[Rfam]
RNA: Small nucleolar RNA ACA64
Organism: Carlito syrichta
RNA sequence: GUUGGUUGAAAAUCACCCUCGGCUUUGGCUGUGGUCAUGGAUAAGAUUCAGCACCCAGAACCACCAGGGCCUCAGCUCACCGCCCACUGCCUCAUGUGCAAGGGUAAAACCCAGGCCCCGACAGUC
Dot-bracket structure: ....((((((..(.(.....((((........)))).....).)..))))))..............((((((....(.(((...(((........)))....))).).....))))).).......
Numbered sequence: 001g002u003u004g005g006u007u008g009a010a011a012a013u014c015a016c017c018c019u020c021g022g023c024u025u026u027g028g029c030u031g032u033g034g035u036c037a038u039g040g041a042u043a044a045g046a047u048u049c050a051g052c053a054c055c056c057a058g059a060a061c062c063a064c065c066a067g068g069g070c071c072u073c074a075g076c077u078c079a080c081c082g083c084c085c086a087c088u089g090c091c092u093c094a095u096g097u098g099c100a101a102g103g104g105u106a107a108a109a110c111c112c113a114g115g116c117c118c119c120g121a122c123a124g125u126c
Stems, first nucleotide, its partner, number of pairs: 005052006013044001015042001021036004067119001068117005077107001079105003085098003